[Rfam]
RNA sequence: AUGACGUGUAACAUGCCGUUGUGAAAUUACUCUGAUGUAUUUAUGCUAUUUUAUUGCUUUUGGGUAACGGGGUGUUACAAUUUG
Numbered sequence: 001a002u003g004a005c006g007u008g009u010a011a012c013a014u015g016c017c018g019u020u021g022u023g024a025a026a027u028u029a030c031u032c033u034g035a036u037g038u039a040u041u042u043a044u045g046c047u048a049u050u051u052u053a054u055u056g057c058u059u060u061u062g063g064g065u066a067a068c069g070g071g072g073u074g075u076u077a078c079a080a081u082u083u084g
Stems, first nucleotide, its partner, number of pairs: 002084003007079008016070005
Dot-bracket structure: .(((..((((((((.(((((.............................................))))).))))))))..)))